Small nucleolar RNA SNORA75: a 134-nucleotide RNA sequence from Catagonus wagneri. It scores 118 bits against the family's covariance model. Its family is annotated with RNA processing and nucleolus in the Gene Ontology. The base pairs follow the family's consensus structure, which was predicted with PFOLD. From the family's description: U23 belongs to the H/ACA class of snoRNAs. snoRNAs bind a number of proteins (including dyskerin, Gar1p and Nop10p in the case of the H/ACA class) to form snoRNP complexes. This class are thought to guide the sites of modification of uridines to pseudouridines by forming direct base pairing interactions with substrate RNAs. Targets include ribosomal and spliceosomal RNAs as well as the Trypanosoma spliced leader RNA (SL RNA) as possibly other, still unknown cellular RNAs. U23 can direct the pseudouridylation of U97 in human 18S rRNA (Bachellerie JP, Ganot, P unpublished data). U23 is encoded within intron 12 of the nucleolin gene in human, mouse, rat chicken, and Xenopus laevis. On this family, see Ganot et al., Genes Dev 1997: "The family of box ACA small nucleolar RNAs is defined by an evolutionarily conserved secondary structure and ubiquitous sequence elements essential for RNA accumulation".

RNA sequence: GUCUUCUCAUUGAGCUCCUUCCUGUCGAUUGGUGACGGUUUAGGAUUCGCACGAGAAGAAGAGAGAAUUCACAGAGCUAGCGUUGUUGCCUUCUGUCUUUACAGAGGUACAUUCAGCUGUUUUGUGAGACAUUU
Numbered sequence: 001g002u003c004u005u006c007u008c009a010u011u012g013a014g015c016u017c018c019u020u021c022c023u024g025u026c027g028a029u030u031g032g033u034g035a036c037g038g039u040u041u042a043g044g045a046u047u048c049g050c051a052c053g054a055g056a057a058g059a060a061g062a063g064a065g066a067a068u069u070c071a072c073a074g075a076g077c078u079a080g081c082g083u084u085g086u087u088g089c090c091u092u093c094u095g096u097c098u099u100u101a102c103a104g105a106g107g108u109a110c111a112u113u114c115a116g117c118u119g120u121u122u123u124g125u126g127a128g129a130c131a132u133u134u
Stems, first nucleotide, its partner, number of pairs: 003058006014050002016045003022038005069127006090107006